[Rfam]
RNA sequence: CUCUUAUCAAGAGUAAGCGGAGGGAGCAGGCCCAAUGAAGCUCGGCAACCAUCACAUUAGGUGACAGGUGCUAACCUGAUGCAAGGGGAUAUCUUACCCUUGAACGAUAAGAG
Number, nucleotide and partner (000 for none) at each position: 001c113002u112003c111004u110005u109006a108007u107008c106009a000010a000011g000012a000013g043014u000015a000016a042017g041018c040019g000020g000021a000022g033023g032024g031025a000026g000027c081028a080029g000030g077031c024032c023033c022034a000035a000036u000037g000038a000039a000040g018041c017042u016043c013044g072045g071046c070047a069048a000049c068050c067051a000052u064053c063054a062055c000056a000057u000058u000059a000060g000061g000062u054063g053064a052065c000066a000067g050068g049069u047070g046071c045072u044073a000074a000075c000076c000077u030078g000079a000080u028081g027082c102083a101084a100085g099086g098087g097088g000089a000090u000091a000092u000093c000094u000095u000096a000097c087098c086099c085100u084101u083102g082103a000104a000105c000106g008107a007108u006109a005110a004111g003112a002113g001
RNA: SAM riboswitch aptamer (S box leader)